[Rfam]
RNA: Small nucleolar RNA SNORA46
Organism: Otolemur garnettii
RNA sequence: AGCACUAUAUUUAAGCCUAUGGACAGGAAUCUUCCCCAUUCUUGGUUACACUGUGAAGCAAAAGAAUUCCUGGUUUUCUCUUGCACAGCUGACUUGUACCAUUCUGGUGUUCAAUGGAGUUAAGGAGCUUUA
Number, nucleotide and partner (000 for none) at each position: 001a000002g059003c058004a000005c000006u055007a054008u053009a052010u000011u000012u000013a000014a047015g046016c045017c044018u000019a000020u000021g041022g040023a039024c000025a000026g036027g035028a000029a000030u000031c000032u000033u000034c000035c027036c026037c000038a000039u023040u022041c021042u000043u000044g017045g016046u015047u014048a000049c000050a000051c000052u009053g008054u007055g006056a000057a000058g003059c002060a000061a000062a000063a000064g000065a000066a000067u127068u126069c125070c124071u123072g121073g120074u119075u118076u117077u116078c000079u114080c000081u000082u000083g110084c000085a000086c109087a108088g000089c106090u000091g104092a103093c000094u000095u000096g000097u000098a000099c000100c000101a000102u000103u092104c091105u000106g089107g000108u087109g086110u083111u000112c000113a000114a079115u000116g077117g076118a075119g074120u073121u072122a000123a071124g070125g069126a068127g067128c000129u000130u000131u000132a000